[Rfam]
RNA sequence: AUUAGUCAUCGGGUUCACUCCUCCUCCCAGAACCCGAUGCGGGAUACGGCACUCCUCCUCCCAGCCGUAUUCAAGAUCAGGCCGCGCAUCCUCCUCCCGCGCGGCCUUUUUC
Numbered sequence: 001a002u003u004a005g006u007c008a009u010c011g012g013g014u015u016c017a018c019u020c021c022u023c024c025u026c027c028c029a030g031a032a033c034c035c036g037a038u039g040c041g042g043g044a045u046a047c048g049g050c051a052c053u054c055c056u057c058c059u060c061c062c063a064g065c066c067g068u069a070u071u072c073a074a075g076a077u078c079a080g081g082c083c084g085c086g087c088a089u090c091c092u093c094c095u096c097c098c099g100c101g102c103g104g105c106c107u108u109u110u111u112c
Stems, first nucleotide, its partner, number of pairs: 007039010042072009079107009
This 112-nucleotide RNA from Brucella rhizosphaerae belongs to the Rfam family "Alphaproteobacterial ar14".
Rfam classes the family as a small RNA.
On this family, see del Val et al., RNA Biol 2012: "A survey of sRNA families in alpha-proteobacteria".
Rfam describes the family as follows. Smr14C2 was renamed NfeR1 (Nodule Formation Efficiency RNA) highly expressed in salt stress and during the symbiotic interaction on legume roots.
A search with the family's covariance model found it, with a score of 85 bits.
The source organism's lineage runs through Bacteria, Pseudomonadati, Hyphomicrobiales, Brucellaceae and Brucella.